Description: A member of the RNA family "Burkholderia RNA 7 (anti-hemB)" from Thauera aromatica, 89 nucleotides long.
RNA sequence: UCUCCCGCUUCACCUCCCUGAGCGGGCGCCUCACGCCCGGUGAGGCUUUUUCGGCCCCCGACUACAUCCCCUCGUCGGGGGUCUUUGUU
Numbered sequence: 001u002c003u004c005c006c007g008c009u010u011c012a013c014c015u016c017c018c019u020g021a022g023c024g025g026g027c028g029c030c031u032c033a034c035g036c037c038c039g040g041u042g043a044g045g046c047u048u049u050u051u052c053g054g055c056c057c058c059c060g061a062c063u064a065c066a067u068c069c070c071c072u073c074g075u076c077g078g079g080g081g082u083c084u085u086u087g088u089u
Stems, first nucleotide, its partner, number of pairs: 004026006028046007055081008
Rfam links the family to the GO terms bacterial biofilm matrix and protein binding. The family's consensus secondary structure is taken from published work. This RNA motif was identified by computational search in b-proteobacteria Burkholderia. Co-purified with Hfq, expression confirmed by Northern blot. A reference for the family is Weinberg et al. (2007), "Identification of 22 candidate structured RNAs in bacteria using the CMfinder comparative genomics pipeline", Nucleic Acids Res. The family's RNA type in Rfam is small RNA.